The family of this 116-nucleotide RNA sequence from Peptococcus niger is "FMN riboswitch aptamer (RFN element)". The source organism's lineage runs through Bacteria, Bacillati, Eubacteriales, Peptococcaceae and Peptococcus. A search with the family's covariance model found it, with a score of 116 bits. Gene Ontology term of the family: FMN binding.
[Rfam]
RNA sequence: AUACUUCUUCAGGGCAGGGUGCAAUUCCCGACCGGCGGUAGAGCCCGCGAGCGACCUUUCGCUGAUUCGUUGUAAUUACGAAGCCGACAGUAAAGUCUGGAUGAAAGAAGAUUUCU
Numbered sequence: 001a002u003a004c005u006u007c008u009u010c011a012g013g014g015c016a017g018g019g020u021g022c023a024a025u026u027c028c029c030g031a032c033c034g035g036c037g038g039u040a041g042a043g044c045c046c047g048c049g050a051g052c053g054a055c056c057u058u059u060c061g062c063u064g065a066u067u068c069g070u071u072g073u074a075a076u077u078a079c080g081a082a083g084c085c086g087a088c089a090g091u092a093a094a095g096u097c098u099g100g101a102u103g104a105a106a107g108a109a110g111a112u113u114u115c116u
Base pairs, nucleotide, nucleotide: 003114006111007110008109009108010107017029018028019027031096032095033086034085035048036047037046038045043084044083051062052061053060066082067081068080069079070078088099089098090097